[Rfam]
RNA sequence: UCCCCCUUAGUUCAGUCGGUAGAACGGCGGACUGUUAAUCCGUAUGUCGCUGGUUCGAGUCCAGCAGGGGGAG
Numbered sequence: 001u002c003c004c005c006c007u008u009a010g011u012u013c014a015g016u017c018g019g020u021a022g023a024a025c026g027g028c029g030g031a032c033u034g035u036u037a038a039u040c041c042g043u044a045u046g047u048c049g050c051u052g053g054u055u056c057g058a059g060u061c062c063a064g065c066a067g068g069g070g071g072a073g
Stems, first nucleotide, its partner, number of pairs: 001072007010025004027043005049065005
RNA: tRNA